[Rfam]
RNA sequence: AAUUAUAAAGAGAAAGGGAUGACGGGUGGACAAUGAUUAACUAAUCUUGCAGUUUUCGUGAAAUUGAAUUUUUGAUUCGAACGAAAAACAGGAUUGGUCUGUCCGCUAUUUAGUUGUUCUCGAUCUCUUUGCGUAUGCAACGGGUUUUUUGAGUUACAAAAAAAUGUGGAUACAAACUGACUGAUCCUUCCGAUACGAUUUCGGAGGGAUUUUUUA
Numbered sequence: 001a002a003u004u005a006u007a008a009a010g011a012g013a014a015a016g017g018g019a020u021g022a023c024g025g026g027u028g029g030a031c032a033a034u035g036a037u038u039a040a041c042u043a044a045u046c047u048u049g050c051a052g053u054u055u056u057c058g059u060g061a062a063a064u065u066g067a068a069u070u071u072u073u074g075a076u077u078c079g080a081a082c083g084a085a086a087a088a089c090a091g092g093a094u095u096g097g098u099c100u101g102u103c104c105g106c107u108a109u110u111u112a113g114u115u116g117u118u119c120u121c122g123a124u125c126u127c128u129u130u131g132c133g134u135a136u137g138c139a140a141c142g143g144g145u146u147u148u149u150u151g152a153g154u155u156a157c158a159a160a161a162a163a164a165u166g167u168g169g170a171u172a173c174a175a176a177c178u179g180a181c182u183g184a185u186c187c188u189u190c191c192g193a194u195a196c197g198a199u200u201u202c203g204g205a206g207g208g209a210u211u212u213u214u215u216a
Stems, first nucleotide, its partner, number of pairs: 016111003023105004029099003042096008053088002058082001059080001060078003064074001119168001121166001128160004183211011
Overview
Rfam assigns this 216-nucleotide RNA from Filibacter tadaridae to the family "Bacillus sRNA ncr1575". By type it is a small RNA. For this family Rfam cites "Identification of regulatory RNAs in Bacillus subtilis" (Irnov et al., Nucleic Acids Res, 2010).